The record is a 224-nucleotide RNA sequence from Roseofilum reptotaenium, which matches "HNH endonuclease-associated RNA and ORF (HEARO) RNA" in Rfam. It is annotated as a non-coding RNA gene. Rfam 15.1 lists 952 matches to the family in 249 species. The literature on the family includes a 2009 paper in Nature by Weinberg et al., "Exceptional structured noncoding RNAs revealed by bacterial metagenome analysis". Taxonomically the source falls in Roseofilum reptotaenium (Bacteria, Bacillati, Cyanophyceae, Desertifilaceae).

RNA sequence: GUCAACGACCCACCGCUAUAUUGCUUUAGCAAUUAGCAGGGACUUGAAAGAGUCCAUAGUUGACCAGCUUAAGUUCAAACAAGAACUACGUUUUUAGAGCUAUCACACCUACGAAUGCGUCGCUAGUUUGCAGCUCUGUGGUUGACAGUUAAACAUCUGUAAUUGGGUUAAGGAAGUGCUGUCAGCGUCACAAACUCUAAAAACAUUAGCGAAGCGAACUUUAC
Numbered sequence: 001g002u003c004a005a006c007g008a009c010c011c012a013c014c015g016c017u018a019u020a021u022u023g024c025u026u027u028a029g030c031a032a033u034u035a036g037c038a039g040g041g042a043c044u045u046g047a048a049a050g051a052g053u054c055c056a057u058a059g060u061u062g063a064c065c066a067g068c069u070u071a072a073g074u075u076c077a078a079a080c081a082a083g084a085a086c087u088a089c090g091u092u093u094u095u096a097g098a099g100c101u102a103u104c105a106c107a108c109c110u111a112c113g114a115a116u117g118c119g120u121c122g123c124u125a126g127u128u129u130g131c132a133g134c135u136c137u138g139u140g141g142u143u144g145a146c147a148g149u150u151a152a153a154c155a156u157c158u159g160u161a162a163u164u165g166g167g168u169u170a171a172g173g174a175a176g177u178g179c180u181g182u183c184a185g186c187g188u189c190a191c192a193a194a195c196u197c198u199a200a201a202a203a204c205a206u207u208a209g210c211g212a213a214g215c216g217a218a219c220u221u222u223a224c
Stems, first nucleotide, its partner, number of pairs: 001064006008057001010041002015037004042053004067210003071206001072087005090204010105139002109133002112130005117220001120217005141186009153177002156174003160170003